[Rfam]
Nucleotides: 076
Base pairs, nucleotide, nucleotide: 002037003036004035005034006033007032008031009030010029012027041072042071043070044069045068046067047066048065049064050063051062052061
Number, partner (000 for none) and nucleotide at each position: 001000c002037g003036u004035g005034g006033u007032g008031c009030g010029g011000a012027g013000u014000g015000a016000u017000u018000c019000c020000c021000c022000c023000c024000a025000a026000u027012c028000c029010c030009c031008g032007c033006a034005u035004c036003a037002c038000u039000g040000a041072g042071g043070c044069g045068g046067c047066a048065c049064c050063u051062g052061u053000u054000c055000c056000c057000c058000c059000c060000a061052a062051u063050a064049g065048g066047u067046g068045c069044c070043g071042c072041c073000c074000c075000u076000u